RNA: mir-16 microRNA precursor family
Organism: Aquarana catesbeiana
RNA sequence: GCCACACUAAAGCAGCACAAUAAUAUUGGGGUUCUCUAUAUUAUCACCCAAUAUUUACGUGCUGCUAAAGCAGAGC
Numbered sequence: 001g002c003c004a005c006a007c008u009a010a011a012g013c014a015g016c017a018c019a020a021u022a023a024u025a026u027u028g029g030g031g032u033u034c035u036c037u038a039u040a041u042u043a044u045c046a047c048c049c050a051a052u053a054u055u056u057a058c059g060u061g062c063u064g065c066u067a068a069a070g071c072a073g074a075g076c
Stems, first nucleotide, its partner, number of pairs: 001076002007070001011066008020056001022055008